[Rfam]
RNA: int-alpA RNA
Organism: Tepidimonas taiwanensis
Nucleotides: 079
Base pairs, nucleotide, nucleotide: 001067002066003065004064005063006062007061008060011033012032013031014030015029016028017027018026039057040056041055042054043053047079048078049077
Number, partner (000 for none) and nucleotide at each position: 001067g002066c003065c004064g005063c006062a007061c008060c009000u010000a011033g012032c013031c014030c015029c016028c017027g018026g019000c020000u021000g022000a023000u024000c025000a026018c027017c028016g029015g030014g031013g032012g033011c034000g035000a036000a037000a038000a039057c040056c041055g042054g043053g044000g045000a046000c047079c048078c049077c050000c051000g052000c053043c054042c055041c056040g057039g058000c059000u060008g061007g062006u063005g064004c065003g066002g067001c068000a069000c070000c071000a072000g073000a074000c075000a076000a077049g078048g079047g